[Rfam]
RNA sequence: UGGGUAGUAUCUUAUGAACUACACCUUGUGAUAAAGAAUAGUUUGUUGAAGACCUUUAUUAAUGUAAAUAGUAAUAAUAAGGUCAAAUAAAAUUUUGAAAAUUAUCUGCCUUGAUCCAAGAAGGACUAGGACAGAGGG
Numbered sequence: 001u002g003g004g005u006a007g008u009a010u011c012u013u014a015u016g017a018a019c020u021a022c023a024c025c026u027u028g029u030g031a032u033a034a035a036g037a038a039u040a041g042u043u044u045g046u047u048g049a050a051g052a053c054c055u056u057u058a059u060u061a062a063u064g065u066a067a068a069u070a071g072u073a074a075u076a077a078u079a080a081g082g083u084c085a086a087a088u089a090a091a092a093u094u095u096u097g098a099a100a101a102u103u104a105u106c107u108g109c110c111u112u113g114a115u116c117c118a119a120g121a122a123g124g125a126c127u128a129g130g131a132c133a134g135a136g137g138g
Base pairs, nucleotide, nucleotide: 002025003024004022005021006020007019008018010017011016106134107133108132109130110129111128113126115125116124117123
The record is a 138-nucleotide sequence, which matches "pan motif" in Rfam.
The family's RNA type in Rfam is cis-regulatory element.